[Rfam]
RNA: Fungal signal recognition particle RNA
Organism: Zymoseptoria tritici
RNA sequence: AGCUGUAAUGGCUCAAGUAGGAGAACACGUUCCCCCCACUUCUGGUACCUUUCCACUCCGACGUCAUGUGCUCAGUUCGAGCCUUGUGGUGGUCGUCCACUCGCUUCGGCAACGAGCGAUUGCUGCGUGCGGCCUUGAGCUUCUGAGGAAUCCUUCAGCCGAGAAAUCGGGCAGAGAACUUCAGACCAUGAGGUGGCGGUAUUGGAAUACACGUGGCGGCGGCGGUAUGAGACAAUGGGGAUUAUGGAGCGUGCGAUUCUUUUU
Numbered sequence: 001a002g003c004u005g006u007a008a009u010g011g012c013u014c015a016a017g018u019a020g021g022a023g024a025a026c027a028c029g030u031u032c033c034c035c036c037c038a039c040u041u042c043u044g045g046u047a048c049c050u051u052u053c054c055a056c057u058c059c060g061a062c063g064u065c066a067u068g069u070g071c072u073c074a075g076u077u078c079g080a081g082c083c084u085u086g087u088g089g090u091g092g093u094c095g096u097c098c099a100c101u102c103g104c105u106u107c108g109g110c111a112a113c114g115a116g117c118g119a120u121u122g123c124u125g126c127g128u129g130c131g132g133c134c135u136u137g138a139g140c141u142u143c144u145g146a147g148g149a150a151u152c153c154u155u156c157a158g159c160c161g162a163g164a165a166a167u168c169g170g171g172c173a174g175a176g177a178a179c180u181u182c183a184g185a186c187c188a189u190g191a192g193g194u195g196g197c198g199g200u201a202u203u204g205g206a207a208u209a210c211a212c213g214u215g216g217c218g219g220c221g222g223c224g225g226u227a228u229g230a231g232a233c234a235a236u237g238g239g240g241a242u243u244a245u246g247g248a249g250c251g252u253g254c255g256a257u258u259c260u261u262u263u264u
Stems, first nucleotide, its partner, number of pairs: 001013003017262001019260004027252007035240003041232003045228005058222003062218009072205005077199003081194009091134001093132004097125001098122002101119005107114002135139001142185007153176003160169003